Rfam assigns this 163-nucleotide RNA sequence from Streptomyces qinglanensis to the family "c-di-AMP riboswitch aptamer (ydaO/yuaA leader)". Lineage of the source: Bacteria > Bacillati > Actinomycetes > Streptomycetaceae > Streptomyces. Rfam links the family to the GO terms regulation of gene expression and cyclic-di-AMP binding. Pairs were carried over by alignment from the consensus structure.
[Rfam]
Nucleotides: 163
Base pairs, nucleotide, nucleotide: 002149004147005146009030010029031144032143033142034141035140036139041072073129074128075127081104082103083102107123108122109121110120
Number, partner (000 for none) and nucleotide at each position: 001000g002149c003000a004147c005146c006000c007000g008000a009030u010029c011000g012000g013000c014000c015000g016000c017000a018000c019000a020000g021000c022000a023000c024000c025000g026000u027000g028000g029010g030009a031144a032143c033142c034141g035140g036139g037000g038000a039000a040000c041072c042000a043000c044000c045000c046000c047000u048000u049000c050000u051000c052000g053000u054000c055000a056000g057000c058000c059000g060000g061000a062000c063000g064000a065000g066000g067000a068000g069000g070000a071000c072041g073129g074128g075127g076000u077000g078000a079000a080000u081104c082103g083102g084000a085000c086000g087000c088000c089000c090000u091000u092000g093000c094000g095000a096000g097000g098000a099000c100000g101000c102083c103082c104081g105000u106000a107123g108122g109121a110120g111000a112000c113000c114000u115000u116000c117000c118000u119000g120110c121109u122108c123107c124000g125000a126000a127075c128074c129073c130000g131000u132000c133000a134000g135000c136000u137000a138000a139036c140035c141034c142033g143032g144031u145000a146005g147004g148000c149002g150000a151000g152000a153000a154000g155000g156000a157000a158000g159000g160000a161000a162000a163000g